The family of this 421-nucleotide RNA sequence from Allobosea sp. RAC05 is "Alphaproteobacteria transfer-messenger RNA". From the family's description: Bacterial tmRNA, also known as 10Sa RNA or SsrA, is named for its dual tRNA and mRNA-like properties. Its role is to liberate the mRNA from a stalled ribosome. To accomplish this part of the tmRNA is used as a reading frame that ends in a translation stop signal. The broken mRNA is replaced in the ribosome by the tmRNA and translation of the tmRNA leads to addition of a proteolysis tag to the incomplete protein enabling recognition by a protease. Clan: tRNA clan. The literature on the family includes a 2002 paper in Nucleic Acids Res by Laslett et al., "BRUCE: a program for the detection of transfer-messenger RNA genes in nucleotide sequences". By type it is a non-coding RNA gene.

[Rfam]
RNA sequence: GUCCUUGAAAAAUGCCUCGUUAUCGCGUAACAGAACAAUGCUGCUUUCGGGCGGCUAUGGCGAUAAAUCGUCAUCGGAAUAGACCUUGCGGACCCGGGGGCGGUACCCGGCGCCUCCACCAUGGACACAUGCGCAAGCGCUGCGGGCCAUCCCGGUAAAUGCGCGCGCAGCGAUAGCAGGCGAGGGCCGUAAACCCGGAUCGCAUGUGUCUUUGAUGGGGGCGAAACAGGCUCGACGUGGGGUGGUAAAAGGUGGUCUUUCGCUCGGUAUGAUUCCGCCGUCAUCGGGUCUUGCGUAGGUGUCAACGACAACAACGCUGGGUACGCUCUCGCCGCGUGAGCGGUGCGGGUAUCCCGUCUAGUCCUGUAGGGUAGCACCUUCAGGCGGGGUUCGGAGGCACCUGGCAACAGAAGCCUCCACU
Numbered sequence: 001g002u003c004c005u006u007g008a009a010a011a012a013u014g015c016c017u018c019g020u021u022a023u024c025g026c027g028u029a030a031c032a033g034a035a036c037a038a039u040g041c042u043g044c045u046u047u048c049g050g051g052c053g054g055c056u057a058u059g060g061c062g063a064u065a066a067a068u069c070g071u072c073a074u075c076g077g078a079a080u081a082g083a084c085c086u087u088g089c090g091g092a093c094c095c096g097g098g099g100g101c102g103g104u105a106c107c108c109g110g111c112g113c114c115u116c117c118a119c120c121a122u123g124g125a126c127a128c129a130u131g132c133g134c135a136a137g138c139g140c141u142g143c144g145g146g147c148c149a150u151c152c153c154g155g156u157a158a159a160u161g162c163g164c165g166c167g168c169a170g171c172g173a174u175a176g177c178a179g180g181c182g183a184g185g186g187c188c189g190u191a192a193a194c195c196c197g198g199a200u201c202g203c204a205u206g207u208g209u210c211u212u213u214g215a216u217g218g219g220g221g222c223g224a225a226a227c228a229g230g231c232u233c234g235a236c237g238u239g240g241g242g243u244g245g246u247a248a249a250a251g252g253u254g255g256u257c258u259u260u261c262g263c264u265c266g267g268u269a270u271g272a273u274u275c276c277g278c279c280g281u282c283a284u285c286g287g288g289u290c291u292u293g294c295g296u297a298g299g300u301g302u303c304a305a306c307g308a309c310a311a312c313a314a315c316g317c318u319g320g321g322u323a324c325g326c327u328c329u330c331g332c333c334g335c336g337u338g339a340g341c342g343g344u345g346c347g348g349g350u351a352u353c354c355c356g357u358c359u360a361g362u363c364c365u366g367u368a369g370g371g372u373a374g375c376a377c378c379u380u381c382a383g384g385c386g387g388g389g390u391u392c393g394g395a396g397g398c399a400c401c402u403g404g405c406a407a408c409a410g411a412a413g414c415c416u417c418c419a420c421u
Base pairs, nucleotide, nucleotide: 040055041054042053043052044051059264060263061262062261063260070256071255072254073253074252075251084242085241086240088238089237090236094110095109096108097107098106111223112222113221114220115219116218117217265280266279267278268277271290272289274288275287276286387402388401389400390399393418394417395416396415397414398413